[Rfam]
The record is a 202-nucleotide RNA from Arthrobacter glacialis, which matches "c-di-AMP riboswitch aptamer (ydaO/yuaA leader)" in Rfam.
Rfam links the family to the GO terms cyclic-di-AMP binding and regulation of gene expression.
The source organism's lineage runs through Bacteria, Actinomycetota, Micrococcales, Micrococcaceae and Arthrobacter.
The base pairs follow the family's consensus structure.
RNA sequence: GGUCCGUUCGUAUCAAUCGUCUGGCAGGGGCGGGGGAACCAAUAAUCGGGCUUCGCAUUUAUUGCAGAAGUCCUUGGGGUGAAGCCGCGAAGCGUUAAACCACGCAUAAGAAAUGUUUCUUUGUGUGCGCCAUAACGUGGAGCGGCCGGGUGACUCCCAUCCGAAUCCGACAGCUUACCUCGCAGGCAUUGGGAGAGGAAAC
Numbered sequence: 001g002g003u004c005c006g007u008u009c010g011u012a013u014c015a016a017u018c019g020u021c022u023g024g025c026a027g028g029g030g031c032g033g034g035g036g037a038a039c040c041a042a043u044a045a046u047c048g049g050g051c052u053u054c055g056c057a058u059u060u061a062u063u064g065c066a067g068a069a070g071u072c073c074u075u076g077g078g079g080u081g082a083a084g085c086c087g088c089g090a091a092g093c094g095u096u097a098a099a100c101c102a103c104g105c106a107u108a109a110g111a112a113a114u115g116u117u118u119c120u121u122u123g124u125g126u127g128c129g130c131c132a133u134a135a136c137g138u139g140g141a142g143c144g145g146c147c148g149g150g151u152g153a154c155u156c157c158c159a160u161c162c163g164a165a166u167c168c169g170a171c172a173g174c175u176u177a178c179c180u181c182g183c184a185g186g187c188a189u190u191g192g193g194a195g196a197g198g199a200a201a202c
Base pairs, nucleotide, nucleotide: 003029004028005027030183031182032181033180034179035178040076041075077168078167079166085145086144087143088142148162149161150160151159